RNA sequence: AGGCUGGAACUCGCCGUACCGAUGACCUAUAUGUCCGGCGUCGGCUUGCCGACUAUGGCGAUAAACACGGUUCGGAAUAAGCGUUGCGGACCCGGGGGCAGUGCCCGGCGCCUCCACCAUCAUCCCAUGCGGCCCCUGGGCCGGGCGGGACGUUCGGGGGCGAAACAGCUUCGACGCGCGUAGUAAAGGGAUCGCUUUUGCCCGGCAUUGUACCGCCGUUAUCGGGCUAAUCCUACAAGUGCGAACGAUAACAGCCGUGAGGCUGUCGCACUCGCUGCCUAACAGGUAAGCGCGGUUCGGGGGGCACCGGGCAACAGAAGCCCCCCACU
Numbered sequence: 001a002g003g004c005u006g007g008a009a010c011u012c013g014c015c016g017u018a019c020c021g022a023u024g025a026c027c028u029a030u031a032u033g034u035c036c037g038g039c040g041u042c043g044g045c046u047u048g049c050c051g052a053c054u055a056u057g058g059c060g061a062u063a064a065a066c067a068c069g070g071u072u073c074g075g076a077a078u079a080a081g082c083g084u085u086g087c088g089g090a091c092c093c094g095g096g097g098g099c100a101g102u103g104c105c106c107g108g109c110g111c112c113u114c115c116a117c118c119a120u121c122a123u124c125c126c127a128u129g130c131g132g133c134c135c136c137u138g139g140g141c142c143g144g145g146c147g148g149g150a151c152g153u154u155c156g157g158g159g160g161c162g163a164a165a166c167a168g169c170u171u172c173g174a175c176g177c178g179c180g181u182a183g184u185a186a187a188g189g190g191a192u193c194g195c196u197u198u199u200g201c202c203c204g205g206c207a208u209u210g211u212a213c214c215g216c217c218g219u220u221a222u223c224g225g226g227c228u229a230a231u232c233c234u235a236c237a238a239g240u241g242c243g244a245a246c247g248a249u250a251a252c253a254g255c256c257g258u259g260a261g262g263c264u265g266u267c268g269c270a271c272u273c274g275c276u277g278c279c280u281a282a283c284a285g286g287u288a289a290g291c292g293c294g295g296u297u298c299g300g301g302g303g304g305c306a307c308c309g310g311g312c313a314a315c316a317g318a319a320g321c322c323c324c325c326c327a328c329u
Stems, first nucleotide, its partner, number of pairs: 040053005057202005068194006082180003086177003092108005109162007203218004208229001210227001213225002293309004299326006
A member of the RNA family "Alphaproteobacteria transfer-messenger RNA" from Falsiroseomonas stagni, 329 nucleotides long. The base pairs follow the family's consensus structure, which is taken from published work. The source organism's lineage runs through Bacteria, Pseudomonadota, Acetobacterales, Falsiroseomonas and Falsiroseomonas stagni. The family's RNA type in Rfam is non-coding RNA gene. Its family is annotated with RNA catabolic process in the Gene Ontology. Bacterial tmRNA, also known as 10Sa RNA or SsrA, is named for its dual tRNA and mRNA-like properties. Its role is to liberate the mRNA from a stalled ribosome. To accomplish this part of the tmRNA is used as a reading frame that ends in a translation stop signal.